Notes:
Shown here is a 170-nucleotide sequence from Romboutsia weinsteinii, a member of the family "Lysine riboswitch aptamer".

RNA sequence: ACCUAGGGUAGAGGUGCAAUAAUUAAAAGUACUCAUUUGAAGCUGGCAAGCUAUGAUAAUUGAGGAAAGGAAUUAUUGCCGAAGAAGAUUUACUGGCAAGUAGUCUUCUGGACUUGUGUAGAAUAUACACAAGGCUGUCACUUAAUAUUAAGUGAUGAGCUACAAGGUUA
Numbered sequence: 001a002c003c004u005a006g007g008g009u010a011g012a013g014g015u016g017c018a019a020u021a022a023u024u025a026a027a028a029g030u031a032c033u034c035a036u037u038u039g040a041a042g043c044u045g046g047c048a049a050g051c052u053a054u055g056a057u058a059a060u061u062g063a064g065g066a067a068a069g070g071a072a073u074u075a076u077u078g079c080c081g082a083a084g085a086a087g088a089u090u091u092a093c094u095g096g097c098a099a100g101u102a103g104u105c106u107u108c109u110g111g112a113c114u115u116g117u118g119u120a121g122a123a124u125a126u127a128c129a130c131a132a133g134g135c136u137g138u139c140a141c142u143u144a145a146u147a148u149u150a151a152g153u154g155a156u157g158a159g160c161u162a163c164a165a166g167g168u169u170a
Stems, first nucleotide, its partner, number of pairs: 008163004016079009032064004037059003083109006090103005110136002113133008138155007
Pairs were carried over by alignment from the consensus structure, which is taken from published work. NCBI's taxonomy places the organism under Bacteria, Bacillota, Peptostreptococcales, Peptostreptococcaceae, Romboutsia. Riboswitches are metabolite binding domains within certain messenger RNAs that serve as precision sensors for their corresponding targets.